[Rfam]
RNA sequence: GAUGAAAGAAUCCGGAGGAACUCUUGCUGUGAUGUGUCGCCGUAAGAGAUUCAUAUCACAGCAGUAGUUGUCUGAAAUUCUUUCAUC
Numbered sequence: 001g002a003u004g005a006a007a008g009a010a011u012c013c014g015g016a017g018g019a020a021c022u023c024u025u026g027c028u029g030u031g032a033u034g035u036g037u038c039g040c041c042g043u044a045a046g047a048g049a050u051u052c053a054u055a056u057c058a059c060a061g062c063a064g065u066a067g068u069u070g071u072c073u074g075a076a077a078u079u080c081u082u083u084c085a086u087c
Base pairs, nucleotide, nucleotide: 003085004084005083006082007081008080009079010078011077016073017072018071019069020068021067022066024064025063026062028060029059030058031057032056033055034054035053036052
The record is an 87-nucleotide RNA from Heterotrigona itama, which matches "mir-2944 microRNA precursor family" in Rfam. Taxonomically the source falls in Heterotrigona (Eukaryota, Protostomia, Altocrustacea, Insecta). It scores 69 bits against the family's covariance model. The base pairs follow the family's consensus structure, which was predicted with RNAalifold.